[Rfam]
RNA sequence: UUUAUCAAUUCCAUACCAUUUCGUAUAACUCCAAUAAUAUGGUUUGGAGGUCUCUACCAGGAACCGAAAUUCCUGAUUACGAAGAAAAUGCAAAUCUUG
Numbered sequence: 001u002u003u004a005u006c007a008a009u010u011c012c013a014u015a016c017c018a019u020u021u022c023g024u025a026u027a028a029c030u031c032c033a034a035u036a037a038u039a040u041g042g043u044u045u046g047g048a049g050g051u052c053u054c055u056a057c058c059a060g061g062a063a064c065c066g067a068a069a070u071u072c073c074u075g076a077u078u079a080c081g082a083a084g085a086a087a088a089u090g091c092a093a094a095u096c097u098u099g
Stems, first nucleotide, its partner, number of pairs: 019084007029049006058075006
Purine riboswitch aptamer: a 99-nucleotide RNA sequence from Ectobacillus ponti.